[Rfam]
This 174-nucleotide RNA from Nocardioides sp. LS1 belongs to the Rfam family "c-di-AMP riboswitch aptamer (ydaO/yuaA leader)". A search with the family's covariance model found it, with a score of 66 bits. The source organism's lineage runs through Bacteria, Bacillati, Actinomycetota, Propionibacteriales and Nocardioides.

RNA sequence: GCGGGCACCGCGCUGAGUCCGGGACCAUUCGGGUGGUCCUGGAGCCGGGGAACCACCACAUCUGGGGUGAAUCCCUCACAAGGCGGGGACACGCAGGUGUCGCCGAGGAGUGGGGGUAGGGCAAGUCGUGCCCGAAUCCGUCAGCUCACCCGGUAGGCGUACGACAGCAAGGGA
Numbered sequence: 001g002c003g004g005g006c007a008c009c010g011c012g013c014u015g016a017g018u019c020c021g022g023g024a025c026c027a028u029u030c031g032g033g034u035g036g037u038c039c040u041g042g043a044g045c046c047g048g049g050g051a052a053c054c055a056c057c058a059c060a061u062c063u064g065g066g067g068u069g070a071a072u073c074c075c076u077c078a079c080a081a082g083g084c085g086g087g088g089a090c091a092c093g094c095a096g097g098u099g100u101c102g103c104c105g106a107g108g109a110g111u112g113g114g115g116g117u118a119g120g121g122c123a124a125g126u127c128g129u130g131c132c133c134g135a136a137u138c139c140g141u142c143a144g145c146u147c148a149c150c151c152g153g154u155a156g157g158c159g160u161a162c163g164a165c166a167g168c169a170a171g172g173g174a
Base pairs, nucleotide, nucleotide: 011159012158013157014156018043019042020041021040022039023038024037025036026035027034028033044154045153046152047151048150049149054064055063065139066138067137073116074115075114076113077112078111079110119133120132121131122130